[Rfam]
RNA sequence: AAAGGAGCAAUAACCAAUUUCCUCUUUUAUCAAGGGGGAUGGUAUUGCUCCUUUAUUU
Numbered sequence: 001a002a003a004g005g006a007g008c009a010a011u012a013a014c015c016a017a018u019u020u021c022c023u024c025u026u027u028u029a030u031c032a033a034g035g036g037g038g039a040u041g042g043u044a045u046u047g048c049u050c051c052u053u054u055a056u057u058u
Stems, first nucleotide, its partner, number of pairs: 001054012014041001019036003023032001
The record is a 58-nucleotide RNA sequence from Vitis rotundifolia, which matches "Plastid-psbA-3 3UTR RNA" in Rfam. The match comes from Rfam's covariance-model search (51 bits). Plastid psbA-3 is a non-coding RNA (ncRNA) present in plastids. It was identified in inverted repeat sequences in the 3 prime untranslate region (3UTR) of photosystem II quinone-binding protein (psbA). NCBI's taxonomy places the organism under Eukaryota, Streptophytina, Spermatophyta, Magnoliopsida, Vitis. For this family Rfam cites "Retrograde signaling in plants: A critical review focusing on the GUN pathway and beyond" (Richter et al., Plant Commun, 2023).